[Rfam]
RNA: DUF3800-IV RNA
RNA sequence: ACAGGUCUUUGAGCGCCUGCCGUGGAAUGCCAGCGGUGCUGCCACCGCCCUCCUUAAGUGGAUCGGCCCACGGAGGCUCUCAAGGACCUGU
Numbered sequence: 001a002c003a004g005g006u007c008u009u010u011g012a013g014c015g016c017c018u019g020c021c022g023u024g025g026a027a028u029g030c031c032a033g034c035g036g037u038g039c040u041g042c043c044a045c046c047g048c049c050c051u052c053c054u055u056a057a058g059u060g061g062a063u064c065g066g067c068c069c070a071c072g073g074a075g076g077c078u079c080u081c082a083a084g085g086a087c088c089u090g091u
Base pairs, nucleotide, nucleotide: 001091002090003089004088005087006086007085008084009083010082011081012080013079015077016076017075018074020073021072022071023070024069025068029067030066031065033048034047035046036045037044038043051062052061053060